mir-1225 microRNA precursor family: a 91-nucleotide RNA from Dipodomys ordii. It scores 99 bits against the family's covariance model. The family has 5 seed sequences and 113 matches in Rfam 15.1.
RNA sequence: GUGGGUACGGCCCAGAGGGGGGGAGAGGGACACACCUGGGCCACUGCGCCCAGGUGCAGCCGGACUGACCGAGCCCCUGUGCCGCCCCCAG
Numbered sequence: 001g002u003g004g005g006u007a008c009g010g011c012c013c014a015g016a017g018g019g020g021g022g023g024a025g026a027g028g029g030a031c032a033c034a035c036c037u038g039g040g041c042c043a044c045u046g047c048g049c050c051c052a053g054g055u056g057c058a059g060c061c062g063g064a065c066u067g068a069c070c071g072a073g074c075c076c077c078u079g080u081g082c083c084g085c086c087c088c089c090a091g
Stems, first nucleotide, its partner, number of pairs: 002090004008084004013079002017077004022070002026066002028061002033056001035054007042046001